[Rfam]
RNA sequence: GCAGUCUGAGAAGGCAAGAUGUCGGCAUAGCUGCUACCAUUUGAAGUGUAGCUGUGUCAGCAUCUGGCCACCUUGAAACUGC
Numbered sequence: 001g002c003a004g005u006c007u008g009a010g011a012a013g014g015c016a017a018g019a020u021g022u023c024g025g026c027a028u029a030g031c032u033g034c035u036a037c038c039a040u041u042u043g044a045a046g047u048g049u050a051g052c053u054g055u056g057u058c059a060g061c062a063u064c065u066g067g068c069c070a071c072c073u074u075g076a077a078a079c080u081g082c
Stems, first nucleotide, its partner, number of pairs: 005077001007075004013069003017065005024058008
RNA: mir-31 microRNA precursor family
Organism: Agrilus planipennis